Metazoan signal recognition particle RNA: a 357-nucleotide sequence from Amazona aestiva. The family is grouped with related families in Rfam's "SRP clan". It is annotated as a non-coding RNA gene. The signal recognition particle (SRP) is a universally conserved ribonucleoprotein. It is involved in the co-translational targeting of proteins to membranes. The eukaryotic SRP consists of a 300-nucleotide 7S RNA and six proteins: SRPs 72, 68, 54, 19, 14, and 9. NCBI's taxonomy places the organism under Eukaryota, Craniata, Sauria, Australaves, Amazona. The base pairs follow the family's consensus structure, which is taken from published work.
[Rfam]
RNA sequence: GCCGGGCGUGGUGGCGCGUGCCUGUAGUCCCAGCUACUCGGGAGGCUGAGCUCGCCGGAUCGCUUGAGCCCAGGAGUUCUGGGCUGCAGUGCGCUAUGCCGAGCGGGCGUCCGCGCUAAGGCCGGCAUCAAUAUGGUGAGCCCCGGGGAGCUGGAGCACAGCAGGUUGACUAAGGAGGGGUGAACCGAUAUGGUGAGCCCCGGGGAGCUGGGGCACACCAGGUUGACUAAGGAGGGGUGAACCGGCCCAGGUCGGAGACAGAGCAGAUCAAAGCUCCCGUGCCGGUCAGUAGCGGGAUCGGGCCUGUGAAUGGCCACUGCAGCAGAGCCUGGGCAACACAGAGAGGGGCGUGUUACU
Numbered sequence: 001g002c003c004g005g006g007c008g009u010g011g012u013g014g015c016g017c018g019u020g021c022c023u024g025u026a027g028u029c030c031c032a033g034c035u036a037c038u039c040g041g042g043a044g045g046c047u048g049a050g051c052u053c054g055c056c057g058g059a060u061c062g063c064u065u066g067a068g069c070c071c072a073g074g075a076g077u078u079c080u081g082g083g084c085u086g087c088a089g090u091g092c093g094c095u096a097u098g099c100c101g102a103g104c105g106g107g108c109g110u111c112c113g114c115g116c117u118a119a120g121g122c123c124g125g126c127a128u129c130a131a132u133a134u135g136g137u138g139a140g141c142c143c144c145g146g147g148g149a150g151c152u153g154g155a156g157c158a159c160a161g162c163a164g165g166u167u168g169a170c171u172a173a174g175g176a177g178g179g180g181u182g183a184a185c186c187g188a189u190a191u192g193g194u195g196a197g198c199c200c201c202g203g204g205g206a207g208c209u210g211g212g213g214c215a216c217a218c219c220a221g222g223u224u225g226a227c228u229a230a231g232g233a234g235g236g237g238u239g240a241a242c243c244g245g246c247c248c249a250g251g252u253c254g255g256a257g258a259c260a261g262a263g264c265a266g267a268u269c270a271a272a273g274c275u276c277c278c279g280u281g282c283c284g285g286u287c288a289g290u291a292g293c294g295g296g297a298u299c300g301g302g303c304c305u306g307u308g309a310a311u312g313g314c315c316a317c318u319g320c321a322g323c324a325g326a327g328c329c330u331g332g333g334c335a336a337c338a339c340a341g342a343g344a345g346g347g348g349c350g351u352g353u354u355a356c357u
Stems, first nucleotide, its partner, number of pairs: 001046003004023007028043003049354003053350004060344002063341002068334007079327002083323009093314005099308001103307006110300001111296002114294005120287009129225004134220005140214007227231001234277005244269002247266001252261001254259001